[Rfam]
RNA sequence: CAGGCCGCCGCGGGAGAGCUGCGCAGUUCCGAUUCACGACGCGCAGCACCGAAGGAGCAAUCCUCCCCGACAAUCUCUCAGGUACAUGUACCGCGGCAGGCUG
Numbered sequence: 001c002a003g004g005c006c007g008c009c010g011c012g013g014g015a016g017a018g019c020u021g022c023g024c025a026g027u028u029c030c031g032a033u034u035c036a037c038g039a040c041g042c043g044c045a046g047c048a049c050c051g052a053a054g055g056a057g058c059a060a061u062c063c064u065c066c067c068c069g070a071c072a073a074u075c076u077c078u079c080a081g082g083u084a085c086a087u088g089u090a091c092c093g094c095g096g097c098a099g100g101c102u103g
Base pairs, nucleotide, nucleotide: 007097008096009095010094011093012092013091019046020045021044022043023042024041048083049082050081051079052078055077056076057075061070062069
Source information: The record is a 103-nucleotide sequence from Gryllotalpicola protaetiae, which matches "Glycine riboswitch aptamer" in Rfam. Rfam 15.1 lists 9,425 matches to the family in 5,228 species. On this family, see Mandal et al., Science 2004: "A glycine-dependent riboswitch that uses cooperative binding to control gene expression".